This 78-nucleotide sequence from Microcebus murinus belongs to the Rfam family "mir-320 microRNA precursor family". The family has 38 seed sequences and 659 matches in Rfam 15.1. NCBI's taxonomy places the organism under Eukaryota, Gnathostomata, Strepsirrhini, Lemuriformes, Microcebus. A search with the family's covariance model found it, with a score of 63 bits. The family's consensus secondary structure was predicted with RNAalifold. The literature on the family includes a 2006 paper in Genome Res by Berezikov et al., "Many novel mammalian microRNA candidates identified by extensive cloning and RAKE analysis".
RNA sequence: UUAGGAAGAGGCCUUCUCUUCCCAGUUCUUCCCGGAGUUGGGAAAAGCUGGGUUGAGGGAUGGUGGGGAGGAAGAUUG
Numbered sequence: 001u002u003a004g005g006a007a008g009a010g011g012c013c014u015u016c017u018c019u020u021c022c023c024a025g026u027u028c029u030u031c032c033c034g035g036a037g038u039u040g041g042g043a044a045a046a047g048c049u050g051g052g053u054u055g056a057g058g059g060a061u062g063g064u065g066g067g068g069a070g071g072a073a074g075a076u077u078g
Stems, first nucleotide, its partner, number of pairs: 014059005021052005029044006